[Rfam]
Record summary: Shown here is a 101-nucleotide sequence from Paenibacillus zeisoli, a member of the family "Purine riboswitch aptamer". The base pairs follow the family's consensus structure, which is taken from published work. The organism belongs to Paenibacillus, within Bacteria. It scores 78 bits against the family's covariance model.
RNA sequence: GAGAAAUGAUUCAUAUCUUCUCGUAUAUGUGCAGGAAUGGGCCUGCACGUUUCUACCAGAUCACCGGAAAUGAUCGGACUACGGGAAAGGCAGAUCGUUAU
Numbered sequence: 001g002a003g004a005a006a007u008g009a010u011u012c013a014u015a016u017c018u019u020c021u022c023g024u025a026u027a028u029g030u031g032c033a034g035g036a037a038u039g040g041g042c043c044u045g046c047a048c049g050u051u052u053c054u055a056c057c058a059g060a061u062c063a064c065c066g067g068a069a070a071u072g073a074u075c076g077g078a079c080u081a082c083g084g085g086a087a088a089g090g091c092a093g094a095u096c097g098u099u100a101u
Stems, first nucleotide, its partner, number of pairs: 018087008029048007057077001059075005